Rfam assigns this 67-nucleotide sequence from Onychostoma macrolepis to the family "MAT2A 3'UTR stem loop F". The match comes from Rfam's covariance-model search (52 bits). The literature on the family includes a 2011 paper in Genome Res by Parker et al., "New families of human regulatory RNA structures identified by comparative analysis of vertebrate genomes".
[Rfam]
RNA sequence: CAGAGGGAUAGCAAUUUUGGCUGGUGUUGUACAGAGAAACUAGCCUUGUUUACAUGCAUUCUCUCUG
Dot-bracket structure: (((((((...((.(.(..(((((((((...))......)))))))..).).....))...)))))))